[Rfam]
Nucleotides: 123
Base pairs, nucleotide, nucleotide: 001123002122003121004120005119007117008116009115010114011113012112013111014110015109016108017107018106020104021103023101024100025099026098027097029095030094031093032092033091034090035089036088037087038086039085041083042082045079046078047077048076
Number, partner (000 for none) and nucleotide at each position: 001123a002122a003121u004120a005119g006000a007117a008116g009115a010114a011113u012112g013111a014110c015109a016108a017107a018106u019000c020104a021103a022000u023101u024100u025099u026098u027097u028000a029095c030094u031093c032092u033091u034090g035089a036088u037087u038086u039085u040000c041083a042082g043000u044000u045079u046078u047077u048076u049000c050000c051000u052000c053000c054000u055000u056000a057000c058000a059000a060000a061000a062000u063000u064000u065000a066000a067000a068000u069000c070000c071000a072000a073000c074000u075000a076048a077047a078046a079045a080000u081000g082042c083041u084000a085039a086038a087037a088036a089035u090034u091033a092032g093031g094030a095029g096000a097027a098026a099025a100024a101023g102000u103021u104020u105000c106018a107017u108016u109015u110014g111013u112012c113011a114010u115009u116008c117007u118000c119005c120004u121003a122002u123001u
About this RNA
MIR7504 microRNA precursor family: a 123-nucleotide RNA from Gossypium aridum. The base pairs follow the family's consensus structure, which was predicted with RNAalifold. Rfam links the family to the GO terms RISC complex and miRNA-mediated post-transcriptional gene silencing.